[Rfam]
Notes
The record is a 140-nucleotide RNA from Anoxynatronum buryatiense, which matches "Group II catalytic intron D1-D4-4" in Rfam. The match comes from Rfam's covariance-model search (108 bits). Pairs were carried over by alignment from the consensus structure. Rfam links the family to the GO term Group II intron splicing. The literature on the family includes a 2003 paper in Crit Rev Biochem Mol Biol by Lehmann and Schmidt, "Group II introns: structure and catalytic versatility of large natural ribozymes". The family has 90 seed sequences and 840 matches in Rfam 15.1. Rfam's curators write: Group II introns are found in rRNA, tRNA and mRNA of organelles in fungi, plants and protists, and also in mRNA in bacteria.
Nucleotides: 140
Base pairs, nucleotide, nucleotide: 020043021042022041023040024039050089051088052087053086054085055080056079057078058077059076064071065070096114097113099112100111101110102109117133118132119131
Number, partner (000 for none) and nucleotide at each position: 001000u002000a003000a004000c005000u006000g007000g008000u009000g010000a011000a012000a013000g014000u015000c016000c017000a018000g019000u020043c021042u022041g023040a024039g025000u026000a027000a028000a029000u030000g031000c032000c033000a034000a035000g036000a037000u038000g039024c040023u041022c042021a043020g044000u045000a046000g047000c048000u049000g050089a051088c052087a053086g054085g055080c056079a057078a058077c059076u060000g061000g062000u063000g064071g065070a066000g067000a068000a069000a070065u071064c072000c073000u074000a075000a076059g077058g078057u079056u080055g081000a082000a083000g084000c085054c086053c087052u088051g089050u090000g091000a092000a093000a094000a095000a096114g097113u098000a099112c100111c101110g102109a103000u104000g105000a106000a107000a108000a109102u110101c111100g112099g113097g114096c115000a116000a117133g118132c119131a120000a121000a122000c123000c124000a125000g126000c127000a128000g129000g130000u131119u132118g133117u134000a135000a136000c137000a138000u139000g140000a